Rfam assigns this 374-nucleotide RNA sequence from Trichoderma citrinoviride to the family "Nuclear RNase P". The source organism's lineage runs through Eukaryota, Fungi, Dikarya, Hypocreaceae and Trichoderma. The match comes from Rfam's covariance-model search (40 bits).
RNA sequence: CCCUGCGCAAGCGGGCCUUUCUCGACCCUUUUGGGGAACUCUUUCGCAUGUGGGAAAUUCGGAGAAAGCUUCAAAGCAGGAAGGGGACACCUCGUGUGUUUGCCUUCCUGUGCUCGACUUUCACGCCGUGUUCUUCGAAUGCGCCGUGAUUGUUCGGGUCCGCCUGUGAUGGCCUGGCGUCACACCGACGUCUGCAACAGACAUCAGAAAUCUUCAGGCCCGGGAGAAGAAGGGACUCUCGUGGUUUCUUCUUUUGUUCCCGGUGGCCUCUGGGAAGUCGUUGCGAAGCUUGUUGCGCAAACUUGAGUGCGAUAUGCAGCGUUCGUCUUGCUUCGGCAAGAGGAAUCACACAAUUCCGAUCAUUCUGUUGAGGG
Numbered sequence: 001c002c003c004u005g006c007g008c009a010a011g012c013g014g015g016c017c018u019u020u021c022u023c024g025a026c027c028c029u030u031u032u033g034g035g036g037a038a039c040u041c042u043u044u045c046g047c048a049u050g051u052g053g054g055a056a057a058u059u060c061g062g063a064g065a066a067a068g069c070u071u072c073a074a075a076g077c078a079g080g081a082a083g084g085g086g087a088c089a090c091c092u093c094g095u096g097u098g099u100u101u102g103c104c105u106u107c108c109u110g111u112g113c114u115c116g117a118c119u120u121u122c123a124c125g126c127c128g129u130g131u132u133c134u135u136c137g138a139a140u141g142c143g144c145c146g147u148g149a150u151u152g153u154u155c156g157g158g159u160c161c162g163c164c165u166g167u168g169a170u171g172g173c174c175u176g177g178c179g180u181c182a183c184a185c186c187g188a189c190g191u192c193u194g195c196a197a198c199a200g201a202c203a204u205c206a207g208a209a210a211u212c213u214u215c216a217g218g219c220c221c222g223g224g225a226g227a228a229g230a231a232g233g234g235a236c237u238c239u240c241g242u243g244g245u246u247u248c249u250u251c252u253u254u255u256g257u258u259c260c261c262g263g264u265g266g267c268c269u270c271u272g273g274g275a276a277g278u279c280g281u282u283g284c285g286a287a288g289c290u291u292g293u294u295g296c297g298c299a300a301a302c303u304u305g306a307g308u309g310c311g312a313u314a315u316g317c318a319g320c321g322u323u324c325g326u327c328u329u330g331c332u333u334c335g336g337c338a339a340g341a342g343g344a345a346u347c348a349c350a351c352a353a354u355u356c357c358g359a360u361c362a363u364u365c366u367g368u369u370g371a372g373g374g
Base pairs, nucleotide, nucleotide: 001374002373003372004371007368008367009366015317016316018314021050060358061357062356063355064354069288070287071286072285162174164172165171176192177191178190179189180188181187194284195283196282197281198280200278216269217268218267321346322345323344324343326341327340328339329338330337